The family of this 41-nucleotide RNA is "DUF805b RNA". It is one of the family's seed sequences. Pairs were carried over by alignment from the consensus structure, which is taken from published work.
RNA sequence: ACGGCGAGUUCCGAAAAGCCGGAUAGUAAACAGAGUAGGAA
Numbered sequence: 001a002c003g004g005c006g007a008g009u010u011c012c013g014a015a016a017a018g019c020c021g022g023a024u025a026g027u028a029a030a031c032a033g034a035g036u037a038g039g040a041a
Stems, first nucleotide, its partner, number of pairs: 002021004010040003